[Rfam]
RNA sequence: CACUUUGGCUACUCACUCAAUCUGGGUGUGAUGUUUGCCUUGAGCCACCACAACCUCCUUGAGUGAGGGACCAAGGUG
Numbered sequence: 001c002a003c004u005u006u007g008g009c010u011a012c013u014c015a016c017u018c019a020a021u022c023u024g025g026g027u028g029u030g031a032u033g034u035u036u037g038c039c040u041u042g043a044g045c046c047a048c049c050a051c052a053a054c055c056u057c058c059u060u061g062a063g064u065g066a067g068g069g070a071c072c073a074a075g076g077u078g
Stems, first nucleotide, its partner, number of pairs: 009069002012067009024055002027052004032047002
Background: Shown here is a 78-nucleotide RNA sequence from Ladona fulva, a member of the family "mir-67 microRNA precursor family". Gene Ontology terms of the family: miRNA-mediated post-transcriptional gene silencing and RISC complex. The family has 33 seed sequences and 196 matches in Rfam 15.1. The family's consensus secondary structure was predicted with RNAalifold. Taxonomically the source falls in Ladona (Eukaryota, Bilateria, Pterygota, Libellulidae). It scores 64 bits against the family's covariance model.